[Rfam]
Shown here is an 87-nucleotide sequence from Rhabdobacter roseus, a member of the family "tRNA". Its family is annotated with triplet codon-amino acid adaptor activity in the Gene Ontology. The source organism's lineage runs through Bacteria, Bacteroidota, Cytophagales, Cytophagaceae and Rhabdobacter.
RNA sequence: GGAGAGAUGGGUGAGUGGCUGAAACCAGUAGUUUGCUAAACUGCCGUACUCGUGAGGGUACCGCGGGUUCGAAUCCCGCUCUCUCCG
Number, nucleotide and partner (000 for none) at each position: 001g086002g085003a084004g083005a082006g081007a080008u000009g000010g026011g025012u024013g000014a000015g000016u000017g000018g000019c000020u000021g000022a000023a000024a012025c011026c010027a000028g044029u043030a042031g041032u040033u000034u000035g000036c000037u000038a000039a000040a032041c031042u030043g029044c028045c000046g000047u000048a000049c000050u000051c000052g000053u000054g000055a000056g000057g000058g000059u000060a000061c000062c000063g079064c078065g077066g076067g075068u000069u000070c000071g000072a000073a000074u000075c067076c066077c065078g064079c063080u007081c006082u005083c004084u003085c002086c001087g000